[Rfam]
RNA sequence: AUUGCUGUAAGAUAUGUUUGAUAUUCUUGGUUGUAGUUUAAGAAGCACCCAGGAGUCAAACAUAUUAUUACAGAGAU
Numbered sequence: 001a002u003u004g005c006u007g008u009a010a011g012a013u014a015u016g017u018u019u020g021a022u023a024u025u026c027u028u029g030g031u032u033g034u035a036g037u038u039u040a041a042g043a044a045g046c047a048c049c050c051a052g053g054a055g056u057c058a059a060a061c062a063u064a065u066u067a068u069u070a071c072a073g074a075g076a077u
Stems, first nucleotide, its partner, number of pairs: 005073005011066012024053002029050002032047002
Rfam assigns this 77-nucleotide RNA sequence from Diabrotica virgifera to the family "mir-190 microRNA precursor family".
For this family Rfam cites "Cloning and expression of new microRNAs from zebrafish" (Kloosterman et al., Nucleic Acids Res, 2006).
The family's consensus secondary structure was predicted with RNAalifold.